[Rfam]
RNA sequence: UAAAAAUACUUUUGCUGUAAGUAGCACACACAGAAGGGCAGCUGUGCCUUAGUCUUUUUCUGUGUGGAAUUGCUGUCAAAAGAUUUAGAAAGCAUCGUUUUUGUUCUUGGGGCAGCUGGUAUUUGCUUAUUCUGCCUCCCCU
Numbered sequence: 001u002a003a004a005a006a007u008a009c010u011u012u013u014g015c016u017g018u019a020a021g022u023a024g025c026a027c028a029c030a031c032a033g034a035a036g037g038g039c040a041g042c043u044g045u046g047c048c049u050u051a052g053u054c055u056u057u058u059u060c061u062g063u064g065u066g067g068a069a070u071u072g073c074u075g076u077c078a079a080a081a082g083a084u085u086u087a088g089a090a091a092g093c094a095u096c097g098u099u100u101u102u103g104u105u106c107u108u109g110g111g112g113c114a115g116c117u118g119g120u121a122u123u124u125g126c127u128u129a130u131u132c133u134g135c136c137u138c139c140c141c142u
Base pairs, nucleotide, nucleotide: 009092010091011090012089013026014025015024016023017022027064028063029062030061032059033058034057035056036055037054038053065088067086068085069084070083071082110140111139112138115136117134118133119132121131123129
U11 spliceosomal RNA: a 142-nucleotide RNA from Podarcis muralis. Its family is annotated with mRNA 5'-splice site recognition, U11 snRNP and pre-mRNA 5'-splice site binding in the Gene Ontology. By type it is a spliceosomal small nuclear RNA. The organism belongs to Podarcis, within Eukaryota.